[Rfam]
Histone 3' UTR stem-loop: a 46-nucleotide RNA sequence from Pedionomus torquatus. It is annotated as a cis-regulatory element. Taxonomically the source falls in Pedionomus (Eukaryota, Eumetazoa, Charadriiformes, Pedionomidae). The mRNAs of metazoan histone genes lack a poly-A tail. 3' end processing occurs at a site between a highly conserved stem-loop (modelled by this family) and a purine rich region around 20 nts downstream (the histone downstream element, or HDE).
RNA sequence: UCUAAGGCUCUUUUCAGAGCCACCCCCAAAAUCAUAGGAGAGCUCG
Numbered sequence: 001u002c003u004a005a006g007g008c009u010c011u012u013u014u015c016a017g018a019g020c021c022a023c024c025c026c027c028a029a030a031a032u033c034a035u036a037g038g039a040g041a042g043c044u045c046g
Stems, first nucleotide, its partner, number of pairs: 006021006
Dot-bracket structure: .....((((((....)))))).........................